[Rfam]
The record is a 424-nucleotide RNA sequence from aff. Roholtiella sp. LEGE 12411, which matches "Bacterial RNase P class A" in Rfam. The source organism's lineage runs through Bacteria, Bacillati, Cyanophyceae, Nostocales and Roholtiella. The match comes from Rfam's covariance-model search (253 bits). Rfam describes the family as follows. Ribonuclease P (RNase P) is a ubiquitous endoribonuclease, found in archaea, bacteria and eukarya as well as chloroplasts and mitochondria. Its best characterised activity is the generation of mature 5'-ends of tRNAs by cleaving the 5'-leader elements of precursor-tRNAs.
RNA sequence: GGAGUAGGCGCAGGCGGUUGCAGAUCAGCCAUACUGGCUGGUUUGAGGAAAGUCCGGGCUUCCGAAAGACCAAACUUGCUGGAUAACGUCCAGUGCGAGCGAUCGUGAGGAUAGUGCCACAGAAAGAUACCGCCAAUUAGUCAUUAGUUAUUAGUCAUUAGUCAUUUGUGAAAGAACAAAGGACAAAGGACUAACGACAAAGGACUAAUUUGGCAAGGGUGCAAAGGUGCGGUAAGAGCGCACCAGCAGCGUCGAGAGGCGCUGGCUCGGUAAACCCCGGUUGGAAGCAAGGCGAAAGGAACUAUGGUUGGUCUUUUACCAGUUCCUCUCAAAAAGAGCCGCUUGAGGCGUCUGGUAACAGGCGUCCCAGAUAGAUAACUGCCCUCGCAAGAGAACAGAACCCGGCUUAUGUCCUGCUCUCUCC
Number, nucleotide and partner (000 for none) at each position: 001g420002g419003a418004g417005u416006a415007g414008g413009c000010g412011c411012a410013g383014g382015c381016g380017g379018u378019u377020g000021c045022a044023g043024a042025u041026c040027a039028g038029c037030c000031a000032u000033a000034c000035u000036g000037g029038c028039u027040g026041g025042u024043u023044u022045g021046a000047g000048g000049a000050a408051a407052g406053u000054c405055c404056g403057g402058g401059c287060u286061u285062c284063c000064g000065a000066a000067a000068g315069a314070c000071c000072a000073a282074a281075c280076u000077u279078g278079c093080u092081g091082g090083a089084u000085a000086a000087c000088g000089u083090c082091c081092a080093g079094u108095g106096c105097g104098a103099g000100c000101g000102a000103u098104c097105g096106u095107g000108a094109g277110g276111a000112u000113a000114g275115u274116g271117c270118c269119a000120c000121a000122g000123a000124a000125a000126g000127a000128u000129a000130c218131c217132g214133c213134c212135a211136a210137u208138u207139a206140g205141u204142c203143a000144u000145u000146a000147g000148u000149u000150a000151u000152u000153a000154g000155u000156c000157a000158u000159u000160a000161g000162u000163c000164a000165u000166u000167u000168g000169u000170g000171a000172a000173a000174g000175a000176a000177c000178a000179a000180a000181g000182g000183a000184c000185a000186a000187a000188g000189g000190a000191c000192u000193a000194a000195c000196g000197a000198c000199a000200a000201a000202g000203g142204a141205c140206u139207a138208a137209u000210u136211u135212g134213g133214c132215a000216a000217g131218g130219g000220u000221g000222c000223a000224a000225a000226g244227g243228u242229g241230c240231g239232g000233u000234a000235a000236g000237a000238g000239c231240g230241c229242a228243c227244c226245a000246g266247c264248a263249g262250c261251g260252u259253c258254g000255a000256g000257a000258g253259g252260c251261g250262c249263u248264g247265g000266c246267u000268c000269g118270g117271u116272a000273a000274a115275c114276c110277c109278c078279g077280g075281u074282u073283g000284g062285a061286a060287g059288c000289a000290a000291g340292g339293c338294g000295a000296a000297a327298g326299g325300a324301a323302c322303u000304a000305u000306g320307g319308u318309u000310g316311g000312u000313c000314u069315u068316u310317u000318a308319c307320c306321a000322g302323u301324u300325c299326c298327u297328c000329u000330c000331a000332a000333a000334a000335a000336g000337a000338g293339c292340c291341g000342c000343u000344u000345g000346a000347g366348g365349c364350g363351u362352c361353u360354g359355g000356u000357a000358a000359c354360a353361g352362g351363c350364g349365u348366c347367c000368c000369a000370g000371a000372u000373a000374g000375a000376u000377a019378a018379c017380u016381g015382c014383c013384c000385u000386c000387g000388c000389a000390a000391g000392a000393g000394a000395a000396c000397a000398g000399a000400a000401c058402c057403c056404g055405g054406c052407u051408u050409a000410u012411g011412u010413c008414c007415u006416g005417c004418u003419c002420u001421c000422u000423c000424c000